Annotation
The family of this 63-nucleotide sequence from Citrobacter koseri is "Fluoride riboswitch aptamer (crcB RNA motif)". NCBI's taxonomy places the organism under Bacteria, Pseudomonadati, Enterobacterales, Citrobacter, Citrobacter koseri.

RNA sequence: UUUUUUACAGGAGAUGGCAUUCCUCCUCAUAACCGCCCUCUGGCUGAUGAUGCCUGCACAUUC
Dot-bracket structure: .........[[.[..((((((].]].........(((....)))....)))))).........
Numbered sequence: 001u002u003u004u005u006u007a008c009a010g011g012a013g014a015u016g017g018c019a020u021u022c023c024u025c026c027u028c029a030u031a032a033c034c035g036c037c038c039u040c041u042g043g044c045u046g047a048u049g050a051u052g053c054c055u056g057c058a059c060a061u062u063c
Stems, first nucleotide, its partner, number of pairs: 010025002013022001016054006035044003